[Rfam]
RNA: mir-46/mir-47/mir-281 microRNA precursor family
Organism: Loa loa
RNA sequence: GAAUGCAGACAGCAAAGAGAGCCAUCUGUUGACAGUCAUAUAUUGCAACUGUCAUGGAACUGCUCUCUUUAUGUCCCUGCGU
Numbered sequence: 001g002a003a004u005g006c007a008g009a010c011a012g013c014a015a016a017g018a019g020a021g022c023c024a025u026c027u028g029u030u031g032a033c034a035g036u037c038a039u040a041u042a043u044u045g046c047a048a049c050u051g052u053c054a055u056g057g058a059a060c061u062g063c064u065c066u067c068u069u070u071a072u073g074u075c076c077c078u079g080c081g082u
Base pairs, nucleotide, nucleotide: 014070015069016068017067018066020064021063022062025058026057027056028055031053032052033051035049036048
Dot-bracket structure: .............(((((.(((..((((..(((.((...........)).))).))))...))).)))))............